[Rfam]
RNA sequence: GUCAGGGCGCGGGCCGUGAAGUCCCAGUCGCCGGGCUCGGGGGCCAGGGUCCGCCCGCCGAAGAAGCCGCCGUCGGCCAGCACGCCCCGGCGGGUGUCCUCGCCGUAGUGGCCGGUGCCGAGCUUCUCCACCUUGCCGUGGGCGAUCAGGUACACGUGGUCGGUGGGCCGGCCGGCCUCGGUGAUGACCUGGCCGGGCUCGUACUCCCGCUGCUCGAAGCGGUCGGCGAGGGCGCGCAGGACGCCCGUGUCGGCGAAGCCGCGCAGCAGGGGCAGCUCGCCGAGCUCGGCGGGGACGACUCUGACGCUCGCGCCCUCCUGGACGAAGGUGACGCGGCCGUCCCCGACCUCGUAGACGAGCCGCCGGUUGACCCGGUAGGUGCCGCCGCUGACCUGGACCCAGGGCAGCAUGCGGAUCAGCCAGCGCGAGCUGAUGCCUUGCAUCUGCGGCAGGGACUUGGUGGUGGUCGCGAGGUUCCGCGCCGCCGCUAUGCCCAGGCUGAGCUGUGCCUGGGCACCGG
Numbered sequence: 001g002u003c004a005g006g007g008c009g010c011g012g013g014c015c016g017u018g019a020a021g022u023c024c025c026a027g028u029c030g031c032c033g034g035g036c037u038c039g040g041g042g043g044c045c046a047g048g049g050u051c052c053g054c055c056c057g058c059c060g061a062a063g064a065a066g067c068c069g070c071c072g073u074c075g076g077c078c079a080g081c082a083c084g085c086c087c088c089g090g091c092g093g094g095u096g097u098c099c100u101c102g103c104c105g106u107a108g109u110g111g112c113c114g115g116u117g118c119c120g121a122g123c124u125u126c127u128c129c130a131c132c133u134u135g136c137c138g139u140g141g142g143c144g145a146u147c148a149g150g151u152a153c154a155c156g157u158g159g160u161c162g163g164u165g166g167g168c169c170g171g172c173c174g175g176c177c178u179c180g181g182u183g184a185u186g187a188c189c190u191g192g193c194c195g196g197g198c199u200c201g202u203a204c205u206c207c208c209g210c211u212g213c214u215c216g217a218a219g220c221g222g223u224c225g226g227c228g229a230g231g232g233c234g235c236g237c238a239g240g241a242c243g244c245c246c247g248u249g250u251c252g253g254c255g256a257a258g259c260c261g262c263g264c265a266g267c268a269g270g271g272g273c274a275g276c277u278c279g280c281c282g283a284g285c286u287c288g289g290c291g292g293g294g295a296c297g298a299c300u301c302u303g304a305c306g307c308u309c310g311c312g313c314c315c316u317c318c319u320g321g322a323c324g325a326a327g328g329u330g331a332c333g334c335g336g337c338c339g340u341c342c343c344c345g346a347c348c349u350c351g352u353a354g355a356c357g358a359g360c361c362g363c364c365g366g367u368u369g370a371c372c373c374g375g376u377a378g379g380u381g382c383c384g385c386c387g388c389u390g391a392c393c394u395g396g397a398c399c400c401a402g403g404g405c406a407g408c409a410u411g412c413g414g415a416u417c418a419g420c421c422a423g424c425g426c427g428a429g430c431u432g433a434u435g436c437c438u439u440g441c442a443u444c445u446g447c448g449g450c451a452g453g454g455a456c457u458u459g460g461u462g463g464u465g466g467u468c469g470c471g472a473g474g475u476u477c478c479g480c481g482c483c484g485c486c487g488c489u490a491u492g493c494c495c496a497g498g499c500u501g502a503g504c505u506g507u508g509c510c511u512g513g514g515c516a517c518c519g520g
Stems, first nucleotide, its partner, number of pairs: 006399002010395003015390002021337002025333001028331005037325002045321001047319003056312003060308001063242001067239001069237002071234003074120004084112001086111002088108001090106003094103002126231002129228001131226002136221001139218001140215005149206001152205001159200001166198001168196005175182002243305001245303001249299004254294001259291001262288002265286003269280001271278001338351002361387002364384003370380003400440007408432002412427002446485004453478003456474003460470002486519002489514001491512001493508001495506003
Record summary
Rfam assigns this 520-nucleotide RNA from Streptomyces luteoverticillatus to the family "Saccharopolyspora sRNA 350". The literature on the family includes a 2013 paper in PLoS One by Liu et al., "Prediction and characterization of small non-coding RNAs related to secondary metabolites in Saccharopolyspora erythraea". It is annotated as an antisense RNA. A search with the family's covariance model found it, with a score of 128 bits. Rfam 15.1 lists 1,170 matches to the family in 705 species.